The record is a 96-nucleotide RNA sequence from Candidatus Manganitrophus noduliformans, which matches "c-di-GMP-I-GGC riboswitch aptamer" in Rfam. The family has 40 seed sequences and 1,298 matches in Rfam 15.1.

RNA sequence: CAAGAUAAAGGCAAACCAACCGAAAGGUUGGGGCGCAAAGCUUCAAGGCUUCGCCGGGCGAAAGGAGUCGCCGGCAUGCUAGUUGGGCUGCCCUGG
Numbered sequence: 001c002a003a004g005a006u007a008a009a010g011g012c013a014a015a016c017c018a019a020c021c022g023a024a025a026g027g028u029u030g031g032g033g034c035g036c037a038a039a040g041c042u043u044c045a046a047g048g049c050u051u052c053g054c055c056g057g058g059c060g061a062a063a064g065g066a067g068u069c070g071c072c073g074g075c076a077u078g079c080u081a082g083u084u085g086g087g088c089u090g091c092c093c094u095g096g
Base pairs, nucleotide, nucleotide: 001096004092011036012035016031017030018029019028020027021026034082039089040088041087042086044085045084046083047080048079049078

Pairs were carried over by alignment from the consensus structure, which is taken from published work. Lineage of the source: Bacteria > Pseudomonadati > Nitrospirota > Candidatus Manganitrophaceae > Candidatus Manganitrophus. Gene Ontology term of the family: cyclic-di-GMP binding.